[Rfam]
A member of the RNA family "Group II catalytic intron D1-D4-2" from a Desulfobulbaceae bacterium, 119 nucleotides long. It scores 68 bits against the family's covariance model.

RNA sequence: GAUAUUUGGACUAUCGGUAAAGACUGUUCAGGCAGAUUUAUCAAACCGCCUUGAGGUGCUGCAUUUUCACGGUGUGGUACUGAGCGUCAAGGUCAAGGCAAAGUCAGACGCUUGUAUGU
Numbered sequence: 001g002a003u004a005u006u007u008g009g010a011c012u013a014u015c016g017g018u019a020a021a022g023a024c025u026g027u028u029c030a031g032g033c034a035g036a037u038u039u040a041u042c043a044a045a046c047c048g049c050c051u052u053g054a055g056g057u058g059c060u061g062c063a064u065u066u067u068c069a070c071g072g073u074g075u076g077g078u079a080c081u082g083a084g085c086g087u088c089a090a091g092g093u094c095a096a097g098g099c100a101a102a103g104u105c106a107g108a109c110g111c112u113u114g115u116a117u118g119u
Stems, first nucleotide, its partner, number of pairs: 001015004016042006024035004047118001049092006055081002058078003062074004098115004103111001
About this RNA: Pairs were carried over by alignment from the consensus structure. Rfam's curators write: Group II introns are found in rRNA, tRNA and mRNA of organelles in fungi, plants and protists, and also in mRNA in bacteria.